[Rfam]
A member of the RNA family "Small Cajal body specific RNA 21" from Propithecus coquereli, 138 nucleotides long. Rfam's curators write: scaRNAs are a specific class of small nuclear RNAs which localise to the Cajal bodies and guide the modification of RNA polymerase II transcribed spliceosomal RNAs U1, U2, U4, U5 and U12. The family has 24 seed sequences and 278 matches in Rfam 15.1. A reference for the family is Darzacq et al. (2002), "Cajal body-specific small nuclear RNAs: a novel class of 2'-O-methylation and pseudouridylation guide RNAs", EMBO J. Rfam classes the family as a small Cajal body RNA. Pairs were carried over by alignment from the consensus structure, which was predicted with RNAalifold.
RNA sequence: UGGCUCAGUUUCCUGGGGGUGUGCUCAGCCUACUCCACCUCCCCUCAGCUGAGCCUAGAGUAGAGGGGCCAGGUAUCCUUCCUCAUAGGAGAGGCAUUUAAAUAAGGAGCCUCGCCUGGCUGCUCUAGCCUUACAUUU
Dot-bracket structure: .((((((.......(((((((.(..........).)))).)))......)))))).........(((((.(((...((........(((....................))).....))....))).)))))......